Rhizobiales sRNA Atu_C8: a 121-nucleotide sequence from Ensifer fredii. A reference for the family is Wilms et al. (2012), "Deep sequencing uncovers numerous small RNAs on all four replicons of the plant pathogen Agrobacterium tumefaciens", RNA Biol. Rfam's curators put it in the seed alignment.
[Rfam]
RNA sequence: GAAAAACUUCGCGGUUAUUCUUGUGGUGGGACGGCGCAUGGGCAGGAUGGUGUGACCAUCCGGCGGUAGCCACCCAUGCGCUGAACGAGGCUCCUGAUGGGGCCUUUUUUUAUGUCUUCAA
Numbered sequence: 001g002a003a004a005a006a007c008u009u010c011g012c013g014g015u016u017a018u019u020c021u022u023g024u025g026g027u028g029g030g031a032c033g034g035c036g037c038a039u040g041g042g043c044a045g046g047a048u049g050g051u052g053u054g055a056c057c058a059u060c061c062g063g064c065g066g067u068a069g070c071c072a073c074c075c076a077u078g079c080g081c082u083g084a085a086c087g088a089g090g091c092u093c094c095u096g097a098u099g100g101g102g103c104c105u106u107u108u109u110u111u112a113u114g115u116c117u118u119c120a121a
Base pairs, nucleotide, nucleotide: 007028009026029117030116031115032114033082034081035080036079037078038077039076040075041074042073045061046060047059048058049057050056063070064069087106088105089104090103091102092101093100094099
It is annotated as a small RNA. Pairs were carried over by alignment from the consensus structure, which was predicted with CMfinder.